Rfam assigns this 142-nucleotide RNA from Carnegiea gigantea to the family "MIR408 microRNA precursor family". Its family is annotated with RISC complex and miRNA-mediated post-transcriptional gene silencing in the Gene Ontology. Lineage of the source: Eukaryota > Streptophyta > Mesangiospermae > Gunneridae > Carnegiea.
RNA sequence: GAGAAGACAUGGAUCAAAGGCAGAGAAGAGGCUGAGCAAUGAUAGAGCUAAAUCAACCAUUAACCGCUCCCAGGAAUUGAAGAUGGGUUGUUGGCUCUAUCCUUGCACUGCCUCUUCCCUGGCUUUUAUCUCUUACUCUUCC
Numbered sequence: 001g002a003g004a005a006g007a008c009a010u011g012g013a014u015c016a017a018a019g020g021c022a023g024a025g026a027a028g029a030g031g032c033u034g035a036g037c038a039a040u041g042a043u044a045g046a047g048c049u050a051a052a053u054c055a056a057c058c059a060u061u062a063a064c065c066g067c068u069c070c071c072a073g074g075a076a077u078u079g080a081a082g083a084u085g086g087g088u089u090g091u092u093g094g095c096u097c098u099a100u101c102c103u104u105g106c107a108c109u110g111c112c113u114c115u116u117c118c119c120u121g122g123c124u125u126u127u128a129u130c131u132c133u134u135a136c137u138c139u140u141c142c
Base pairs, nucleotide, nucleotide: 017125018124019123021121022120023119025117026116027115029113030112031111032110034108036106037105038104039103041101045097046096047095048094049093050092051091